Overview
Shown here is a 150-nucleotide RNA from Paenibacillus radicis, a member of the family "FMN riboswitch aptamer (RFN element)".
RNA sequence: AAGGAUCUUCGGGGCAGGGUGAAACUCCUGACCGGCGGUAAACGUUCCUCGUUGAACGAAGCCCGCGACUCUCUGAGCCGACUACGGCAAGGGGACUGACUUGGUGCAAAUCCAAGGCCGACGGUAUAGUCCGGAUGGAAGAAGAUCACA
Numbered sequence: 001a002a003g004g005a006u007c008u009u010c011g012g013g014g015c016a017g018g019g020u021g022a023a024a025c026u027c028c029u030g031a032c033c034g035g036c037g038g039u040a041a042a043c044g045u046u047c048c049u050c051g052u053u054g055a056a057c058g059a060a061g062c063c064c065g066c067g068a069c070u071c072u073c074u075g076a077g078c079c080g081a082c083u084a085c086g087g088c089a090a091g092g093g094g095a096c097u098g099a100c101u102u103g104g105u106g107c108a109a110a111u112c113c114a115a116g117g118c119c120g121a122c123g124g125u126a127u128a129g130u131c132c133g134g135a136u137g138g139a140a141g142a143a144g145a146u147c148a149c150a
Stems, first nucleotide, its partner, number of pairs: 004147007017029003031130002033120002035066004061118002070095005100116005122133003
The organism belongs to Paenibacillus, within Bacteria. Its family is annotated with FMN binding in the Gene Ontology.